This 139-nucleotide RNA from Nannospalax galili belongs to the Rfam family "Small nucleolar RNA SNORA8". Its Rfam clan is "SNORA8 clan". It is annotated as an H/ACA-box small nucleolar RNA. It scores 103 bits against the family's covariance model. NCBI's taxonomy places the organism under Eukaryota, Teleostomi, Amniota, Rodentia, Nannospalax. Rfam's curators write: ACA8 is a member of the H/ACA class of snoRNA that guide the sites of modification of uridines to pseudouridines.
RNA sequence: UGCACUGCAUGGUAUCUGCACUCAGCCACUCCCUCCUGCUGGUGUGUUCAAAGACACUGCAAUAGAAAUUCACUAUGUGGCAUCGUUGGUAUUCCUGGCUUUGGUGCCUAUUAAACCUGGUAUUUCUUUUGAUACACUU
Numbered sequence: 001u002g003c004a005c006u007g008c009a010u011g012g013u014a015u016c017u018g019c020a021c022u023c024a025g026c027c028a029c030u031c032c033c034u035c036c037u038g039c040u041g042g043u044g045u046g047u048u049c050a051a052a053g054a055c056a057c058u059g060c061a062a063u064a065g066a067a068a069u070u071c072a073c074u075a076u077g078u079g080g081c082a083u084c085g086u087u088g089g090u091a092u093u094c095c096u097g098g099c100u101u102u103g104g105u106g107c108c109u110a111u112u113a114a115a116c117c118u119g120g121u122a123u124u125u126c127u128u129u130u131g132a133u134a135c136a137c138u139u
Base pairs, nucleotide, nucleotide: 002060003059004058006056007055015054016053017052018047019046020045021044023042024040025039026038064127065126066125067124068123069122070120071119072118079108080107081106082105083104
Dot-bracket structure: .(((.((.......(((((((.((((...........))).).))))....))))).)))...(((((((((......(((((....................))))).........))).))))))............